This 213-nucleotide RNA sequence from Aurantiacibacter luteus belongs to the Rfam family "permuted transfer-messenger RNA". Gene Ontology term of the family: RNA catabolic process. The source organism's lineage runs through Bacteria, Pseudomonadota, Alphaproteobacteria, Erythrobacteraceae and Aurantiacibacter. Pairs were carried over by alignment from the consensus structure, which is taken from published work. Bacterial tmRNA, also known as 10Sa RNA or SsrA, is named for its dual tRNA and mRNA-like properties. Its role is to liberate the mRNA from a stalled ribosome. To accomplish this part of the tmRNA is used as a reading frame that ends in a translation stop signal. The broken mRNA is replaced in the ribosome by the tmRNA and translation of the tmRNA leads to addition of a proteolysis tag to the incomplete protein enabling recognition by a protease. Rfam classes the family as a non-coding RNA gene. The literature on the family includes a 1996 paper in RNA by Williams and Bartel, "Phylogenetic analysis of tmRNA secondary structure".

[Rfam]
RNA sequence: GGCGAUAAAGUGCGCCGUGAAAUAGGUACAAUGGACCCGGGGGCAGUACCCGGCGGCUCCACCAAAACCGCAGUGACCUGCGCGUUCUGACGGGGCCGAACCAGGAUCGACAUGUGCUGAAAGACGGUGUUUUUGCUCGGGCUGAGUACCCCGUAAAACUGUUCAAAACACACAAGUGCCAACGAUAACGAAGCACUCGCUCUUGCUGCGUAA
Numbered sequence: 001g002g003c004g005a006u007a008a009a010g011u012g013c014g015c016c017g018u019g020a021a022a023u024a025g026g027u028a029c030a031a032u033g034g035a036c037c038c039g040g041g042g043g044c045a046g047u048a049c050c051c052g053g054c055g056g057c058u059c060c061a062c063c064a065a066a067a068c069c070g071c072a073g074u075g076a077c078c079u080g081c082g083c084g085u086u087c088u089g090a091c092g093g094g095g096c097c098g099a100a101c102c103a104g105g106a107u108c109g110a111c112a113u114g115u116g117c118u119g120a121a122a123g124a125c126g127g128u129g130u131u132u133u134u135g136c137u138c139g140g141g142c143u144g145a146g147u148a149c150c151c152c153g154u155a156a157a158a159c160u161g162u163u164c165a166a167a168a169c170a171c172a173c174a175a176g177u178g179c180c181a182a183c184g185a186u187a188a189c190g191a192a193g194c195a196c197u198c199g200c201u202c203u204u205g206c207u208g209c210g211u212a213a
Stems, first nucleotide, its partner, number of pairs: 001137005015127004027116003031113003037053005054098007138153004